[Rfam]
RNA sequence: CAUUUGUAAGAACUUUUUGAAUCAAGUAAUAUAGUGAUUCAAAAAGUUCUCAA
Numbered sequence: 001c002a003u004u005u006g007u008a009a010g011a012a013c014u015u016u017u018u019g020a021a022u023c024a025a026g027u028a029a030u031a032u033a034g035u036g037a038u039u040c041a042a043a044a045a046g047u048u049c050u051c052a053a
Stems, first nucleotide, its partner, number of pairs: 007052001009050016
Annotation
Shown here is a 53-nucleotide sequence from Hevea brasiliensis, a member of the family "Plastid-ccsA-ndhD-1 3UTR RNA". About the family: Plastid-ccsA-ndhD-1 is a non-coding RNA (ncRNA) recognised in plastids. It was found in the three prime untranslated region (3UTR) of ccsA and ndhD genes, its 3UTR location suggests a role in transcript maturation. A search with the family's covariance model found it, with a score of 50 bits. The family's RNA type in Rfam is cis-regulatory element. A reference for the family is Zandueta-Criado and Bock (2004), "Surprising features of plastid ndhD transcripts: addition of non-encoded nucleotides and polysome association of mRNAs with an unedited start codon", Nucleic Acids Res. Pairs were carried over by alignment from the consensus structure, which was predicted with LocARNA. The family has 488 seed sequences and 1,322 matches in Rfam 15.1.